Small nucleolar RNA snoR111: a 125-nucleotide RNA sequence from Striga asiatica. It is annotated as an H/ACA-box small nucleolar RNA. A reference for the family is Marker et al. (2002), "Experimental RNomics: identification of 140 candidates for small non-messenger RNAs in the plant Arabidopsis thaliana", Curr Biol. Rfam 15.1 lists 533 matches to the family in 223 species. It scores 73 bits against the family's covariance model. Lineage of the source: Eukaryota > Spermatophyta > eudicotyledons > Lamiales > Striga. The family's consensus secondary structure was predicted with WAR. Its family is annotated with RNA processing and nucleolus in the Gene Ontology.
RNA sequence: UAAAGAAGGGGACGGUAAAUUGAUGCCGUCUCGUCGUUGAGGUCGAGAGGUAUAGUAAUGUCGGCGAGAUAUCGUUUCAUUCGUCAUUUAUCCCCAUUGACGAUAUGAUUGUUGCUCCUCUACAU
Numbered sequence: 001u002a003a004a005g006a007a008g009g010g011g012a013c014g015g016u017a018a019a020u021u022g023a024u025g026c027c028g029u030c031u032c033g034u035c036g037u038u039g040a041g042g043u044c045g046a047g048a049g050g051u052a053u054a055g056u057a058a059u060g061u062c063g064g065c066g067a068g069a070u071a072u073c074g075u076u077u078c079a080u081u082c083g084u085c086a087u088u089u090a091u092c093c094c095c096a097u098u099g100a101c102g103a104u105a106u107g108a109u110u111g112u113u114g115c116u117c118c119u120c121u122a123c124a125u
Base pairs, nucleotide, nucleotide: 006037008035009034011032012029013028014027015026016025017024063121064120066117067116068115071109072108073107074106081103082102083101084100085099086098088096